[Rfam]
RNA sequence: CGGUGGGUGCAAUUCCCACCCGGCAACUAUCGCUCCAGCCGGUAGCAAUCGGAACGGCUGUGGAGGUAACGAAGCAGCCGAAGCCUCUGGUGUAGAAGGUCAUUAUAGGUGACUUGUCGAGCAUGCAGGCCGAACGAGU
Numbered sequence: 001c002g003g004u005g006g007g008u009g010c011a012a013u014u015c016c017c018a019c020c021c022g023g024c025a026a027c028u029a030u031c032g033c034u035c036c037a038g039c040c041g042g043u044a045g046c047a048a049u050c051g052g053a054a055c056g057g058c059u060g061u062g063g064a065g066g067u068a069a070c071g072a073a074g075c076a077g078c079c080g081a082a083g084c085c086u087c088u089g090g091u092g093u094a095g096a097a098g099g100u101c102a103u104u105a106u107a108g109g110u111g112a113c114u115u116g117u118c119g120a121g122c123a124u125g126c127a128g129g130c131c132g133a134a135c136g137a138g139u
Stems, first nucleotide, its partner, number of pairs: 020042005050089004055080006065070001098114006118132002
The record is a 139-nucleotide RNA from Nitrococcus mobilis, which matches "Group II catalytic intron D1-D4-4" in Rfam. The pairing is the family consensus, mapped onto this sequence. Rfam links the family to the GO term Group II intron splicing. The organism belongs to Nitrococcus mobilis, within Bacteria.